[Rfam]
RNA sequence: UACUCUGAAAAGCGUAAUUUAGCACCGAUGGGGCAAUUUCUGCAGUUUAAGAAAGAAACUCUCAGGUUAAUGAACAGAGCA
Numbered sequence: 001u002a003c004u005c006u007g008a009a010a011a012g013c014g015u016a017a018u019u020u021a022g023c024a025c026c027g028a029u030g031g032g033g034c035a036a037u038u039u040c041u042g043c044a045g046u047u048u049a050a051g052a053a054a055g056a057a058a059c060u061c062u063c064a065g066g067u068u069a070a071u072g073a074a075c076a077g078a079g080c081a
Stems, first nucleotide, its partner, number of pairs: 001081001003079005015021002024067003027063002031061003037054005
Notes
This 81-nucleotide RNA from Alkaliphilus sp. B6464 belongs to the Rfam family "Glycine riboswitch aptamer".